[Rfam]
Source information: Shown here is a 90-nucleotide RNA, a member of the family "c-di-GMP-II-GAG riboswitch aptamer". Clan: c-di-GMP_II riboswitch clan. Rfam's curators put it in the seed alignment.
Nucleotides: 090
Base pairs, nucleotide, nucleotide: 001090006085007084008083009082010081011080014064015063022059023058024057025056026055027054028053029052042077043076044073045072046071047070048069
Number, partner (000 for none) and nucleotide at each position: 001090u002000u003000g004000c005000c006085u007084u008083c009082u010081g011080g012000u013000a014064g015063c016000a017000a018000u019000g020000a021000a022059c023058c024057g025056c026055a027054g028053u029052u030000c031000g032000a033000g034000u035000c036000a037000a038000g039000a040000g041000c042077g043076g044073u045072c046071a047070c048069c049000u050000a051000g052029a053028a054027c055026u056025g057024c058023g059022g060000g061000g062000a063015g064014c065000g066000a067000g068000u069048g070047g071046u072045g073044a074000g075000a076043c077042c078000g079000a080011c081010c082009a083008g084007a085006a086000a087000a088000g089000u090001g